Source information: This 76-nucleotide sequence from Echinococcus granulosus belongs to the Rfam family "mir-745 microRNA precursor family".
RNA sequence: AGUUUUUGUGCCAGUUCUUAUCGGGUAUAUCAUGCCGCCAUUUCAUGCUGCCUGGUAAGAGCUGUGACAAAAAUUG
Dot-bracket structure: ...(((..((..(.((.((((..((((...((.............)).))))..)))).))...)..)).)))...

Source information
NCBI's taxonomy places the organism under Eukaryota, Eumetazoa, Bilateria, Rhabditophora, Echinococcus. Pairs were carried over by alignment from the consensus structure, which was predicted with RNAalifold. Rfam links the family to the GO terms miRNA-mediated post-transcriptional gene silencing and RISC complex.